[Rfam]
The record is a 101-nucleotide sequence from Clostridium luticellarii, which matches "Purine riboswitch aptamer" in Rfam.
Its family is annotated with purine nucleobase biosynthetic process in the Gene Ontology.
The family's consensus secondary structure is taken from published work.
RNA sequence: AACAAAUACAAAUGGAGUAUCCAUAUAAUCUUAAUAAUCUGGUUUAGGAGUUUCUACAGGAAACCGUAAAUUUCCCGUCUAUGGAUAAAUUUAAUUUAAAU
Numbered sequence: 001a002a003c004a005a006a007u008a009c010a011a012a013u014g015g016a017g018u019a020u021c022c023a024u025a026u027a028a029u030c031u032u033a034a035u036a037a038u039c040u041g042g043u044u045u046a047g048g049a050g051u052u053u054c055u056a057c058a059g060g061a062a063a064c065c066g067u068a069a070a071u072u073u074c075c076c077g078u079c080u081a082u083g084g085a086u087a088a089a090u091u092u093a094a095u096u097u098a099a100a101u
Base pairs, nucleotide, nucleotide: 018087019086020085021084022083023082024081025080029049030048031047032046033045034044057077059075060074061073062072063071